[Rfam]
The family of this 69-nucleotide sequence from Tupaia belangeri is "mir-503 microRNA precursor family". For this family Rfam cites "Small RNA expression and strain specificity in the rat" (Linsen et al., BMC Genomics, 2010). Pairs were carried over by alignment from the consensus structure, which was predicted with RNAalifold.
RNA sequence: UGCCCUAGCAGCGGUAACACUACUGCAGUGAGGUCUGGGCUCUGGAGUAUUGUUUCUGCUGCCAGGGUA
Number, nucleotide and partner (000 for none) at each position: 001u000002g068003c067004c066005c065006u000007a000008g062009c061010a060011g059012c058013g057014g056015u000016a054017a053018c052019a051020c000021u049022a000023c047024u046025g000026c044027a043028g042029u000030g000031a041032g040033g000034u000035c000036u000037g000038g000039g000040c032041u031042c028043u027044g026045g000046a024047g023048u000049a021050u000051u019052g018053u017054u016055u000056c014057u013058g012059c011060u010061g009062c008063c000064a000065g005066g004067g003068u002069a000